[Rfam]
RNA sequence: GGGUCAAUUAUGAAAACUUAUUGUCUUGAAGUGAGAUGAUGAUGUAAAAAUUGUGAUCAAUUGAAUUAUGAUGAAGAUAAACCU
Number, nucleotide and partner (000 for none) at each position: 001g084002g083003g082004u081005c073006a072007a000008u070009u000010a000011u000012g000013a000014a000015a000016a000017c000018u000019u000020a000021u000022u000023g000024u000025c000026u000027u000028g000029a000030a000031g000032u000033g000034a000035g000036a000037u000038g000039a000040u000041g000042a000043u000044g000045u000046a000047a000048a000049a000050a000051u000052u000053g000054u000055g000056a000057u000058c000059a000060a000061u000062u000063g000064a000065a000066u000067u000068a000069u000070g008071a000072u006073g005074a000075a000076g000077a000078u000079a000080a000081a004082c003083c002084u001
RNA: Small nucleolar RNA SNORD115